[Rfam]
RNA sequence: UAGGCAAUUAUUGUAUUCGACUGUAUUCACGAUAUGUAUUUGUGAAUACAGUAACGUAAAUAGCGUAAAUCAUGGUCUAUUCAGCUGUUUUUAAACAAAAAGUGAAUCAAUUAACACAAUAGACUCCU
Numbered sequence: 001u002a003g004g005c006a007a008u009u010a011u012u013g014u015a016u017u018c019g020a021c022u023g024u025a026u027u028c029a030c031g032a033u034a035u036g037u038a039u040u041u042g043u044g045a046a047u048a049c050a051g052u053a054a055c056g057u058a059a060a061u062a063g064c065g066u067a068a069a070u071c072a073u074g075g076u077c078u079a080u081u082c083a084g085c086u087g088u089u090u091u092u093a094a095a096c097a098a099a100a101a102g103u104g105a106a107u108c109a110a111u112u113a114a115c116a117c118a119a120u121a122g123a124c125u126c127c128u
Stems, first nucleotide, its partner, number of pairs: 003126002008122007016114002019112002022109002025107006033097001035095001036090001038088001040087001042085001
Rfam assigns this 128-nucleotide RNA sequence from Nicotiana sylvestris to the family "MIR6152 microRNA precursor family". The match comes from Rfam's covariance-model search (57 bits). Its family is annotated with RISC complex and miRNA-mediated post-transcriptional gene silencing in the Gene Ontology.